[Rfam]
Nucleotides: 298
Stems, first nucleotide, its partner, number of pairs: 001040003004023007028037003043295005049289002053285005061275007073268009083258003087255005093249001097248008105237002108235005114228001116226007123162004128157008137148004163169002173216003186209003193202003
Number, partner (000 for none) and nucleotide at each position: 001040g002039u003038c004023g005022g006021g007020u008019g009018u010017g011000g012000u013000a014000g015000c016000g017010c018009a019008u020007g021006c022005c023004u024000g025000u026000a027000g028037u029036c030035c031000g032000a033000g034000c035030g036029g037028a038003g039002a040001c041000u042000u043295g044294a045293g046292u047291g048000u049289g050288g051000a052000c053285c054284g055283g056282c057281u058000u059000g060000a061275g062274c063273u064272g065271c066270g067269g068000a069000g070000u071000u072000c073268u074267c075266g076265c077264g078263g079262c080261a081260g082000u083258c084257u085256u086000c087255a088254u089253u090252g091251u092000g093249u094000u095000g096000a097248g098247g099246c100245g101244g102243c103242g104241u105237c106236c107000g108235c109234g110233c111232u112231a113000a114228g115000a116226g117225c118224g119223g120222c121221g122220u123162c124161a125160a126159c127000a128157a129156g130155g131154g132153g133152a134151g135150u136000a137148u138147g139146g140145g141000g142000u143000a144000g145140c146139c147138u148137g149000c150135a151134c152133u153132c154131u155130c156129c157128u158000g159126g160125u161124u162123g163169c164168a165000u166000a167000a168164u169163g170000a171000a172000a173216g174215g175214u176000g177000u178000u179000a180000a181000u182000c183000a184000a185000a186209g187208g188207u189000c190000a191000g192000g193202c194201c195200c196000u197000a198000a199000a200195g201194g202193g203000a204000g205000c206000a207188g208187c209186c210000a211000a212000a213000a214175g215174c216173c217000g218000a219000c220122g221121c222120g223119u224118c225117g226116u227000g228114c229000g230000g231112u232111a233110g234109c235108g236106g237105g238000a239000c240000a241104g242103c243102g244101c245100u246099g247098c248097u249093g250000a251091g252090c253089a254088g255087u256085g257084a258083g259000c260081c261080u262079g263078u264077c265076g266075u267074g268073a269067c270066c271065g272064u273063g274062g275061u276000a277000a278000u279000a280000c281057a282056g283055u284054c285053g286000a287000a288050c289049c290000u291047c292046a293045u294044u295043c296000u297000u298000u
The family of this 298-nucleotide RNA sequence from Oikopleura dioica is "Metazoan signal recognition particle RNA". Rfam describes the family as follows. The signal recognition particle (SRP) is a universally conserved ribonucleoprotein. It is involved in the co-translational targeting of proteins to membranes. The eukaryotic SRP consists of a 300-nucleotide 7S RNA and six proteins: SRPs 72, 68, 54, 19, 14, and 9. Archaeal SRP consists of a 7S RNA and homologues of the eukaryotic SRP19 and SRP54 proteins. Eukaryotic and archaeal 7S RNAs have very similar secondary structures, as represented by this family. Eight helical elements fold into the Alu and S domains, separated by a long linker region. The Alu domain is thought to mediate the peptide chain elongation retardation function of the SRP. The universally conserved helix which interacts with the SRP54 M domain mediates signal sequence recognition. In eukaryotes and archaea, the SRP19-helix 6 complex is thought to be involved in SRP assembly and stabilises helix 8 for SRP54 binding. The Signal Recognition Particle Database (SRPDB) provides compilations of SRP components, with phylogenetic data and structural illustrations. Many sequences below the threshold for this family are clearly closely related, but are most likely to be SRP RNA derived pseudogenes. The human genome in particular is known to contain a large amount of SRP RNA related sequence, including Alu repeats. While the threshold of this family is set high so as to minimise the number of hits to such regions, it is likely that some remain. Rfam links the family to the GO terms signal recognition particle, endoplasmic reticulum targeting and SRP-dependent cotranslational protein targeting to membrane, signal sequence recognition. Rfam 15.1 lists 383,523 matches to the family in 1,221 species. For this family Rfam cites "Prediction of signal recognition particle RNA genes" (Regalia et al., Nucleic Acids Res, 2002). Taxonomically the source falls in Oikopleura (Eukaryota, Metazoa, Bilateria, Appendicularia). The family's RNA type in Rfam is non-coding RNA gene.